[Rfam]
Notes: The record is a 201-nucleotide sequence from Actinocorallia herbida, which matches "c-di-AMP riboswitch aptamer (ydaO/yuaA leader)" in Rfam.
RNA sequence: CCACGGCCAACGCCGAGUCCGCGCACGCGCGGAGCCGGGGACCCAACCCGCAGGCACCCCGAACCACCCCCAAAGGGUUCGAGCCAUGCCCGCGGAGGGGUUAAUCGGCCGGUCGCUCCCCAAAGCGACAGGUCGUAGGGCACUUCUCCACUUCCGCCCGCACCCGACAGCUAACCCGGUAGGCGUAUGGAAGAAGGAGAU
Numbered sequence: 001c002c003a004c005g006g007c008c009a010a011c012g013c014c015g016a017g018u019c020c021g022c023g024c025a026c027g028c029g030c031g032g033a034g035c036c037g038g039g040g041a042c043c044c045a046a047c048c049c050g051c052a053g054g055c056a057c058c059c060c061g062a063a064c065c066a067c068c069c070c071c072a073a074a075g076g077g078u079u080c081g082a083g084c085c086a087u088g089c090c091c092g093c094g095g096a097g098g099g100g101u102u103a104a105u106c107g108g109c110c111g112g113u114c115g116c117u118c119c120c121c122a123a124a125g126c127g128a129c130a131g132g133u134c135g136u137a138g139g140g141c142a143c144u145u146c147u148c149c150a151c152u153u154c155c156g157c158c159c160g161c162a163c164c165c166g167a168c169a170g171c172u173a174a175c176c177c178g179g180u181a182g183g184c185g186u187a188u189g190g191a192a193g194a195a196g197g198a199g200a201u
Base pairs, nucleotide, nucleotide: 011185012184013183014182018033019032020031021030022029034180035179036178037177038176039175044097098165099164100163106135107134108133109132138159139158140157141156

NCBI's taxonomy places the organism under Bacteria, Bacillati, Actinomycetes, Thermomonosporaceae, Actinocorallia.